A member of the RNA family "Betaproteobacteria toxic small RNA" from Alcaligenaceae bacterium 429, 63 nucleotides long.
About the family: Overexpression in amino aid rich medium attenuates growth, suggesting role in repressing amino acid intake and metabolism.
On this family, see Kimelman et al., Genome Res 2012: "A vast collection of microbial genes that are toxic to bacteria".
[Rfam]
RNA sequence: UGUCUCCUCCACCCUCCUCCUUUGGUGGAUUUGCCCGAGAUCUACAGAUCUCGGGCUUUUUUU
Numbered sequence: 001u002g003u004c005u006c007c008u009c010c011a012c013c014c015u016c017c018u019c020c021u022u023u024g025g026u027g028g029a030u031u032u033g034c035c036c037g038a039g040a041u042c043u044a045c046a047g048a049u050c051u052c053g054g055g056c057u058u059u060u061u062u063u
Stems, first nucleotide, its partner, number of pairs: 008029006033056008
Dot-bracket structure: .......((((((..........))))))...((((((((........)))))))).......